Notes:
mir-16 microRNA precursor family: a 78-nucleotide sequence from Papaver nudicaule. On this family, see Partin et al., Mol Cell 2020: "Cryo-EM Structures of Human Drosha and DGCR8 in Complex with Primary MicroRNA".
RNA sequence: GCAAGAUUUUAGCAGCACUCAAUUAUAGUUGUUUUAAUUAAUUAAAACAACACAAUGGUUGUGUUGCUUUAAUUCAGC
Numbered sequence: 001g002c003a004a005g006a007u008u009u010u011a012g013c014a015g016c017a018c019u020c021a022a023u024u025a026u027a028g029u030u031g032u033u034u035u036a037a038u039u040a041a042u043u044a045a046a047a048c049a050a051c052a053c054a055a056u057g058g059u060u061g062u063g064u065u066g067c068u069u070u071a072a073u074u075c076a077g078c
Stems, first nucleotide, its partner, number of pairs: 001078002005074003010071001011068008020058001022056003026052001028051002
Dot-bracket structure: ((..(((..(((((((((.(.(((.(.((....................))).))).)..))))))))..))))..))